[Rfam]
RNA sequence: AAAAGUAUUACACCAUGAGAACUGAAUUCCAUAGAUGGUGGCAUCUCCAGGUGUCAUCUAUGGGCUCAGUUCUUUUGCCGUGGUACUGUUU
Number, nucleotide and partner (000 for none) at each position: 001a000002a000003a000004a000005g000006u000007a000008u082009u000010a000011c000012a000013c077014c000015a000016u000017g000018a073019g072020a071021a070022c069023u068024g067025a066026a000027u000028u000029c000030c000031a000032u000033a059034g058035a057036u056037g000038g000039u000040g000041g000042c000043a000044u000045c000046u000047c000048c000049a000050g000051g000052u000053g000054u000055c000056a036057u035058c034059u033060a000061u000062g000063g000064g000065c000066u025067c024068a023069g022070u021071u020072c019073u018074u000075u000076u000077g013078c000079c000080g000081u000082g008083g000084u000085a000086c000087u000088g000089u000090u000091u000
Rfam assigns this 91-nucleotide sequence from Cynoglossus semilaevis to the family "mir-146 microRNA precursor family". Its family is annotated with RISC complex and miRNA-mediated post-transcriptional gene silencing in the Gene Ontology. The source organism's lineage runs through Eukaryota, Acanthomorphata, Euacanthomorphacea, Pleuronectoidei and Cynoglossus. A search with the family's covariance model found it, with a score of 52 bits.